Rfam assigns this 62-nucleotide sequence from Hevea brasiliensis to the family "Plastid-psbA-4 3UTR RNA". From the family's description: Plastid psbA-4 is a non-coding RNA (ncRNA) present in plastids. It was identified in inverted repeat sequences in the 3 prime untranslate region (3UTR) of photosystem II quinone-binding protein (psbA). The organism belongs to Hevea, within Eukaryota. The base pairs follow the family's consensus structure, which was predicted with LocARNA. The family's RNA type in Rfam is cis-regulatory element.
RNA sequence: UAAAAAAAGGAGCAAUAUCCAAUUUCUUGUUCUAUCAAGAGGAUUGGAUAUUGCUCAGUUAU
Numbered sequence: 001u002a003a004a005a006a007a008a009g010g011a012g013c014a015a016u017a018u019c020c021a022a023u024u025u026c027u028u029g030u031u032c033u034a035u036c037a038a039g040a041g042g043a044u045u046g047g048a049u050a051u052u053g054c055u056c057a058g059u060u061a062u
Stems, first nucleotide, its partner, number of pairs: 006060002010056008021045002024041006